A member of the RNA family "TPP riboswitch aptamer (THI element)" from a Methylocystaceae bacterium, 92 nucleotides long. Rfam links the family to the GO term thiamine pyrophosphate binding.
RNA sequence: GACCUAUGACAGGGGUGUCCGUAUGGGCUGAGACUUAACCCUUAUUACCUGAACCGGAUAAUGCUGGCGUAGGAAGUCAUUGAGGCGCAAUC
Numbered sequence: 001g002a003c004c005u006a007u008g009a010c011a012g013g014g015g016u017g018u019c020c021g022u023a024u025g026g027g028c029u030g031a032g033a034c035u036u037a038a039c040c041c042u043u044a045u046u047a048c049c050u051g052a053a054c055c056g057g058a059u060a061a062u063g064c065u066g067g068c069g070u071a072g073g074a075a076g077u078c079a080u081u082g083a084g085g086c087g088c089a090a091u092c
Stems, first nucleotide, its partner, number of pairs: 006080005011042004017028004048073004054067004